[Rfam]
RNA sequence: CAUACCCGCAAAGCCAUUAACCACAUCAACUCCGUGUGGGAGGACUUGCGGGAAGACA
Numbered sequence: 001c002a003u004a005c006c007c008g009c010a011a012a013g014c015c016a017u018u019a020a021c022c023a024c025a026u027c028a029a030c031u032c033c034g035u036g037u038g039g040g041a042g043g044a045c046u047u048g049c050g051g052g053a054a055g056a057c058a
Stems, first nucleotide, its partner, number of pairs: 005052007014043002021039006